RNA sequence: GAAAUCUGAGGACGGAACAGGCAGCCGUCACGCCAUUGUGGUCUAAAAGAGAUGUGGGAUUGCCACCCCACCUGAUUUU
Numbered sequence: 001g002a003a004a005u006c007u008g009a010g011g012a013c014g015g016a017a018c019a020g021g022c023a024g025c026c027g028u029c030a031c032g033c034c035a036u037u038g039u040g041g042u043c044u045a046a047a048a049g050a051g052a053u054g055u056g057g058g059a060u061u062g063c064c065a066c067c068c069c070a071c072c073u074g075a076u077u078u079u
Stems, first nucleotide, its partner, number of pairs: 001079006008072001011029005020064004031049001032042004054071005

The family of this 79-nucleotide RNA sequence is "skipping-rope RNA".
The family's consensus secondary structure is taken from published work.